RNA sequence: GCGUCCGAGGAGCGUUGCAAGGCUGGUGCCGUCAGAGUGGCAUCCACCCCAGGCUCGGACCCCUCCUUUCAGGCAACGGCGCUCACCCGCU
Numbered sequence: 001g002c003g004u005c006c007g008a009g010g011a012g013c014g015u016u017g018c019a020a021g022g023c024u025g026g027u028g029c030c031g032u033c034a035g036a037g038u039g040g041c042a043u044c045c046a047c048c049c050c051a052g053g054c055u056c057g058g059a060c061c062c063c064u065c066c067u068u069u070c071a072g073g074c075a076a077c078g079g080c081g082c083u084c085a086c087c088c089g090c091u
Stems, first nucleotide, its partner, number of pairs: 003060006021048002025044007

The record is a 91-nucleotide RNA sequence from Sphaerotilus hippei, which matches "SAH (S-adenosyl-L-homocysteine) riboswitch aptamer" in Rfam. A search with the family's covariance model found it, with a score of 53 bits.